[Rfam]
RNA sequence: UCCUUUUGCUUUUGAUUGUUGCUCAGAAAGCCGGGUGUUAGAAAGGCUUUCGGGCAAUAAUCAUUUCCAAAGAGGAC
Numbered sequence: 001u002c003c004u005u006u007u008g009c010u011u012u013u014g015a016u017u018g019u020u021g022c023u024c025a026g027a028a029a030g031c032c033g034g035g036u037g038u039u040a041g042a043a044a045g046g047c048u049u050u051c052g053g054g055c056a057a058u059a060a061u062c063a064u065u066u067c068c069a070a071a072g073a074g075g076a077c
Base pairs, nucleotide, nucleotide: 003075004074005073006072007071013063014062015061016060018058019057020056021055022054023053024052026051027050028049029048030047031046032045
The family of this 77-nucleotide RNA from Tribolium castaneum is "mir-315 microRNA precursor family". The organism belongs to Tribolium, within Eukaryota. A reference for the family is Aravin et al. (2003), "The small RNA profile during Drosophila melanogaster development", Dev Cell. Rfam's curators put it in the seed alignment.